c-di-GMP-I-GGC riboswitch aptamer: a 77-nucleotide sequence from Paenibacillus zeisoli. On this family, see Weinberg et al., Proc Natl Acad Sci U S A 2017: "Bioinformatic analysis of riboswitch structures uncovers variant classes with altered ligand specificity". Pairs were carried over by alignment from the consensus structure, which is taken from published work. Clan: c-di-GMP_I riboswitch clan. The match comes from Rfam's covariance-model search (62 bits).
RNA sequence: UACGAAAACGCAAACUUAUCGAAAGGUAAGGACGCAAAGCCACAGGCCAGAACAAAAUGGCGGCUGGGUUGCCGAAA
Dot-bracket structure: (.((.....((...((((((....))))))..[))..((((.((((((..........))).])))))))..))..)
Numbered sequence: 001u002a003c004g005a006a007a008a009c010g011c012a013a014a015c016u017u018a019u020c021g022a023a024a025g026g027u028a029a030g031g032a033c034g035c036a037a038a039g040c041c042a043c044a045g046g047c048c049a050g051a052a053c054a055a056a057a058u059g060g061c062g063g064c065u066g067g068g069u070u071g072c073c074g075a076a077a
Stems, first nucleotide, its partner, number of pairs: 001077001003074002010035002015030006033063001038070004043066003046061003